About this RNA
Rfam assigns this 114-nucleotide sequence from Amycolatopsis bartoniae to the family "TPP riboswitch aptamer (THI element)".

[Rfam]
RNA sequence: CACGGUUGCCACGGGAGUCCGGAGCCGAACCGGGCUGAGAGGCGGGACCAGACCCGCGACCGUCCGCACCUGAUCCGGAUCAUGCCGGCGCCAGGGAGGCCCCAGCCCCUUCCU
Numbered sequence: 001c002a003c004g005g006u007u008g009c010c011a012c013g014g015g016a017g018u019c020c021g022g023a024g025c026c027g028a029a030c031c032g033g034g035c036u037g038a039g040a041g042g043c044g045g046g047a048c049c050a051g052a053c054c055c056g057c058g059a060c061c062g063u064c065c066g067c068a069c070c071u072g073a074u075c076c077g078g079a080u081c082a083u084g085c086c087g088g089c090g091c092c093a094g095g096g097a098g099g100c101c102c103c104a105g106c107c108c109c110u111u112c113c114u
Stems, first nucleotide, its partner, number of pairs: 008100003011063004017035005042057005069095004075088004

A search with the family's covariance model found it, with a score of 55 bits.